[Rfam]
RNA: MAT2A 3'UTR stem loop C
Organism: Ursus americanus
RNA sequence: GCUUUCUGAACAGCUGAUGUAGCUACAAAGAAACCAGUUUCCUUCAGAGAGC
Numbered sequence: 001g002c003u004u005u006c007u008g009a010a011c012a013g014c015u016g017a018u019g020u021a022g023c024u025a026c027a028a029a030g031a032a033a034c035c036a037g038u039u040u041c042c043u044u045c046a047g048a049g050a051g052c
Stems, first nucleotide, its partner, number of pairs: 001052009012039005018033001019026002
Dot-bracket structure: (((((((((..(((((.(((....))......).)))))....)))))))))